Overview
A member of the RNA family "Purine riboswitch aptamer" from Rummeliibacillus stabekisii, 102 nucleotides long.
RNA sequence: AAAUAUUCGUAUUUUAUUCUUCGUAUAAACUUGGAAAUAAGGUCCAAAAGUCUCUACCAAACUACCGUAAAUAGUUUGACUAUGAGGAAUGACAGAAAACGA
Numbered sequence: 001a002a003a004u005a006u007u008c009g010u011a012u013u014u015u016a017u018u019c020u021u022c023g024u025a026u027a028a029a030c031u032u033g034g035a036a037a038u039a040a041g042g043u044c045c046a047a048a049a050g051u052c053u054c055u056a057c058c059a060a061a062c063u064a065c066c067g068u069a070a071a072u073a074g075u076u077u078g079a080c081u082a083u084g085a086g087g088a089a090u091g092a093c094a095g096a097a098a099a100c101g102a
Stems, first nucleotide, its partner, number of pairs: 018088008031047005058078007
It scores 85 bits against the family's covariance model.